The family of this 59-nucleotide sequence from Variovorax sp. Sphag1AA is "Selenocysteine insertion sequence 3". It is annotated as a cis-regulatory element. A reference for the family is Huttenhofer et al. (1996), "Solution structure of mRNA hairpins promoting selenocysteine incorporation in Escherichia coli and their base-specific interaction with special elongation factor SELB", RNA. Taxonomically the source falls in Variovorax (Bacteria, Pseudomonadati, Pseudomonadota, Comamonadaceae).

[Rfam]
RNA sequence: GUCUGACACGCCCCGACGGUGGCCGGUCUGGCCCCGACGUUUGGGCGCGGUGCGAUGAC
Numbered sequence: 001g002u003c004u005g006a007c008a009c010g011c012c013c014c015g016a017c018g019g020u021g022g023c024c025g026g027u028c029u030g031g032c033c034c035c036g037a038c039g040u041u042u043g044g045g046c047g048c049g050g051u052g053c054g055a056u057g058a059c
Base pairs, nucleotide, nucleotide: 007049009047010046011045012044013043015042016041018035019034021033022032023031024030025029